[Rfam]
RNA sequence: UAAAAAAAGAGUUGAUUAAUCCUUGAAGAAAAGAUAUUAUAAUACUAUAUGCAACAUGACUUUGGAACCCGAACAACAUGACAAGGGAGCCCAAUCAGGGCGGACUUCGAAUGUUGCAGGAUUGUGGGAGUGUGAAACACGGAGCAAUCCGUGUAUGUGUA
Numbered sequence: 001u002a003a004a005a006a007a008a009g010a011g012u013u014g015a016u017u018a019a020u021c022c023u024u025g026a027a028g029a030a031a032a033g034a035u036a037u038u039a040u041a042a043u044a045c046u047a048u049a050u051g052c053a054a055c056a057u058g059a060c061u062u063u064g065g066a067a068c069c070c071g072a073a074c075a076a077c078a079u080g081a082c083a084a085g086g087g088a089g090c091c092c093a094a095u096c097a098g099g100g101c102g103g104a105c106u107u108c109g110a111a112u113g114u115u116g117c118a119g120g121a122u123u124g125u126g127g128g129a130g131u132g133u134g135a136a137a138c139a140c141g142g143a144g145c146a147a148u149c150c151g152u153g154u155a156u157g158u159g160u161a
Stems, first nucleotide, its partner, number of pairs: 001161002003158001005156001007154001011068003018062002022058001024056002028052001030050001032048001033046001035044003074116006083107003089101004119150007130140004
Rfam assigns this 161-nucleotide RNA from Blautia liquoris to the family "Clostridiales-1 RNA".
Rfam classes the family as a small RNA.
Pairs were carried over by alignment from the consensus structure, which is taken from published work.